[Rfam]
A member of the RNA family "Manganese Mn2+ riboswitch aptamer (yybP-ykoY)" from Listeria innocua, 125 nucleotides long. The literature on the family includes a 2001 paper in Curr Biol by Argaman et al., "Novel small RNA-encoding genes in the intergenic regions of Escherichia coli". About the family: This RNA was originally discovered in E. coli during a large scale screen and was named SraF. The family was later found to exist upstream of related families of protein genes in many bacteria, including the the yybP and ykoK genes in B. subtilis. The specific functions of these proteins are unknown, but this structured RNA element may be involved in their genetic regulation as a riboswitch. Rfam 15.1 lists 1,126 matches to the family in 1,062 species. NCBI's taxonomy places the organism under Bacteria, Bacillati, Bacillota, Bacilli, Listeria.

RNA sequence: ACAAAUGUCAGAGGGGAGUAGCGCUGAUUAGCUUUUAAUCAGGAUAAAGUCGUCAUUACAUGAUAGAGAUAUCAUCGGUUUUAUCACAUUUAACUUUAAAUGUUAGCGAGACCUUUGCCUUUAUG
Numbered sequence: 001a002c003a004a005a006u007g008u009c010a011g012a013g014g015g016g017a018g019u020a021g022c023g024c025u026g027a028u029u030a031g032c033u034u035u036u037a038a039u040c041a042g043g044a045u046a047a048a049g050u051c052g053u054c055a056u057u058a059c060a061u062g063a064u065a066g067a068g069a070u071a072u073c074a075u076c077g078g079u080u081u082u083a084u085c086a087c088a089u090u091u092a093a094c095u096u097u098a099a100a101u102g103u104u105a106g107c108g109a110g111a112c113c114u115u116u117g118c119c120u121u122u123a124u125g
Stems, first nucleotide, its partner, number of pairs: 025041003043085010060075005086103007